[Rfam]
Source information
This 84-nucleotide sequence from Coleophoma cylindrospora belongs to the Rfam family "tRNA". Taxonomically the source falls in Coleophoma (Eukaryota, Fungi, leotiomyceta, sordariomyceta). It is annotated as a transfer RNA. It scores 49 bits against the family's covariance model.
RNA sequence: GCGCUAUUAUAGCAGUGGUUAGCUUGUCUGCUUCCCAUACCUGGGAAUUAGCAGGAGACGUGAGUUCGAAUCUCGCAUAGCGCA
Numbered sequence: 001g002c003g004c005u006a007u008u009a010u011a012g013c014a015g016u017g018g019u020u021a022g023c024u025u026g027u028c029u030g031c032u033u034c035c036c037a038u039a040c041c042u043g044g045g046a047a048u049u050a051g052c053a054g055g056a057g058a059c060g061u062g063a064g065u066u067c068g069a070a071u072c073u074c075g076c077a078u079a080g081c082g083c084a
Stems, first nucleotide, its partner, number of pairs: 001083007011024003027055005060076005